[Rfam]
RNA sequence: UCUCCCGCUUCACCUCCCUGAGCGGGGCCCUGAUCCAGACAGGGCUGCUUGACCCCCGGCAUUUCUCCCCUUUGGCCGGGGGUUUUUUAU
Numbered sequence: 001u002c003u004c005c006c007g008c009u010u011c012a013c014c015u016c017c018c019u020g021a022g023c024g025g026g027g028c029c030c031u032g033a034u035c036c037a038g039a040c041a042g043g044g045c046u047g048c049u050u051g052a053c054c055c056c057c058g059g060c061a062u063u064u065c066u067c068c069c070c071u072u073u074g075g076c077c078g079g080g081g082g083u084u085u086u087u088u089a090u
Stems, first nucleotide, its partner, number of pairs: 004026006027045006053082008